[Rfam]
RNA sequence: CCAUUAACUAUUAAAAGUUUUGUUUUGGUCCCUUAACUUAUUUUUUGGUUUCGUUUUGGUCCCUUAACUCUUCCUUCAUCAACCACUUUGGUCCUUUAUGCUAGGAUGAAUGUAUUAGAGUUAAGGGACCAAAACGAAACCAAAAAAUAAGUUAAAGGACCAAAACGAAACCAAAAAAUAAGUUAAGGGACCAAAACGAAACCAAAAAAUAAGUUAAGGGACCAAAACGAAACUUUUAAUAGUUAAGGGA
Numbered sequence: 001c002c003a004u005u006a007a008c009u010a011u012u013a014a015a016a017g018u019u020u021u022g023u024u025u026u027g028g029u030c031c032c033u034u035a036a037c038u039u040a041u042u043u044u045u046u047g048g049u050u051u052c053g054u055u056u057u058g059g060u061c062c063c064u065u066a067a068c069u070c071u072u073c074c075u076u077c078a079u080c081a082a083c084c085a086c087u088u089u090g091g092u093c094c095u096u097u098a099u100g101c102u103a104g105g106a107u108g109a110a111u112g113u114a115u116u117a118g119a120g121u122u123a124a125g126g127g128a129c130c131a132a133a134a135c136g137a138a139a140c141c142a143a144a145a146a147a148u149a150a151g152u153u154a155a156a157g158g159a160c161c162a163a164a165a166c167g168a169a170a171c172c173a174a175a176a177a178a179u180a181a182g183u184u185a186a187g188g189g190a191c192c193a194a195a196a197c198g199a200a201a202c203c204a205a206a207a208a209a210u211a212a213g214u215u216a217a218g219g220g221a222c223c224a225a226a227a228c229g230a231a232a233c234u235u236u237u238a239a240u241a242g243u244u245a246a247g248g249g250a
Base pairs, nucleotide, nucleotide: 002248004246005245006244007243008242023227024226025225027223028222029221031219032218033217034216035215036214037213038212039211040210041209042208043207045205046204047203
RNA: MIR2655 microRNA precursor family
Organism: Medicago truncatula